[Rfam]
RNA sequence: CAACAAAUUAAUAGAUUGCCUCAUAUAUUUCUGGGAAUAUGGCCUGGAAGUUUCUACCCGGCACCUUAAAUGCCGGACUAUGAGGGAAGAUGAGUCGUUG
Numbered sequence: 001c002a003a004c005a006a007a008u009u010a011a012u013a014g015a016u017u018g019c020c021u022c023a024u025a026u027a028u029u030u031c032u033g034g035g036a037a038u039a040u041g042g043c044c045u046g047g048a049a050g051u052u053u054c055u056a057c058c059c060g061g062c063a064c065c066u067u068a069a070a071u072g073c074c075g076g077a078c079u080a081u082g083a084g085g086g087a088a089g090a091u092g093a094g095u096c097g098u099u100g
Base pairs, nucleotide, nucleotide: 019085020084021083022082023081024080025079029049030048031047032046033045034044035043058076059075060074061073062072063071
A member of the RNA family "Purine riboswitch aptamer" from Virgibacillus indicus, 100 nucleotides long. NCBI's taxonomy places the organism under Bacteria, Bacillati, Bacillota, Bacillaceae, Virgibacillus. Pairs were carried over by alignment from the consensus structure, which is taken from published work.